The family of this 99-nucleotide RNA sequence from Caenorhabditis nigoni is "mir-36 microRNA precursor family". Its family is annotated with RISC complex and miRNA-mediated post-transcriptional gene silencing in the Gene Ontology. On this family, see Lim et al., Genes Dev 2003: "The microRNAs of Caenorhabditis elegans".
RNA sequence: CCUUCAGUCCAGUUCCGGACACUCGCAGGUUUUUGCUUCGGUGAUAGUCGAUGAAUCGUUAUCACCGGGUGAAAAUUUGCAAGUGUCCGGUAACUGGAC
Numbered sequence: 001c002c003u004u005c006a007g008u009c010c011a012g013u014u015c016c017g018g019a020c021a022c023u024c025g026c027a028g029g030u031u032u033u034u035g036c037u038u039c040g041g042u043g044a045u046a047g048u049c050g051a052u053g054a055a056u057c058g059u060u061a062u063c064a065c066c067g068g069g070u071g072a073a074a075a076u077u078u079g080c081a082a083g084u085g086u087c088c089g090g091u092a093a094c095u096g097g098a099c
Stems, first nucleotide, its partner, number of pairs: 016089007025080013039067001041065006

Record summary: The source organism's lineage runs through Eukaryota, Ecdysozoa, Nematoda, Rhabditina and Caenorhabditis.